[Rfam]
Description: A member of the RNA family "Small nucleolar RNA CD11" from Drosophila navojoa, 78 nucleotides long. It is annotated as a C/D-box small nucleolar RNA.

RNA sequence: ACUGUAUUCCAUAGUGAAUGGAUUGGCGGAAGAGUUCUCUGAAGACAAUAUUCGUCACCCAAGACUGACGAAUUUAUU
Dot-bracket structure: (.(.........................(((...)))..................................).)....
Numbered sequence: 001a002c003u004g005u006a007u008u009c010c011a012u013a014g015u016g017a018a019u020g021g022a023u024u025g026g027c028g029g030a031a032g033a034g035u036u037c038u039c040u041g042a043a044g045a046c047a048a049u050a051u052u053c054g055u056c057a058c059c060c061a062a063g064a065c066u067g068a069c070g071a072a073u074u075u076a077u078u
Stems, first nucleotide, its partner, number of pairs: 001074001003072001029037003
A search with the family's covariance model found it, with a score of 62 bits. A reference for the family is Huang et al. (2005), "Genome-wide analyses of two families of snoRNA genes from Drosophila melanogaster, demonstrating the extensive utilization of introns for coding of snoRNAs", RNA.